[Rfam]
RNA sequence: CUCGGGAGGGUGUGGUCCCUCAGCCUGGAUUGUGAAAGGGUGCAGGCCAGGCUGAGGAACCCCACUGGUGCAAG
Numbered sequence: 001c002u003c004g005g006g007a008g009g010g011u012g013u014g015g016u017c018c019c020u021c022a023g024c025c026u027g028g029a030u031u032g033u034g035a036a037a038g039g040g041u042g043c044a045g046g047c048c049a050g051g052c053u054g055a056g057g058a059a060c061c062c063c064a065c066u067g068g069u070g071c072a073a074g
Base pairs, nucleotide, nucleotide: 004071006069009066010065012063014061015060016059018057019056020055021054022053023052024051025050027048028047030045031044032043033042034041

The record is a 74-nucleotide sequence from Myotis myotis, which matches "mir-9193 microRNA precursor family" in Rfam. NCBI's taxonomy places the organism under Eukaryota, Euteleostomi, Sarcopterygii, Laurasiatheria, Myotis. A search with the family's covariance model found it, with a score of 71 bits.